[Rfam]
RNA: msiK RNA
Organism: Quadrisphaera sp. DSM 44207
RNA sequence: CGCGCAGGCCCCUCACUCGGAUCGUCCGGCACGUUCCUGCCGGUGGGAGGACACACCA
Numbered sequence: 001c002g003c004g005c006a007g008g009c010c011c012c013u014c015a016c017u018c019g020g021a022u023c024g025u026c027c028g029g030c031a032c033g034u035u036c037c038u039g040c041c042g043g044u045g046g047g048a049g050g051a052c053a054c055a056c057c058a
Stems, first nucleotide, its partner, number of pairs: 009050002012047004026043006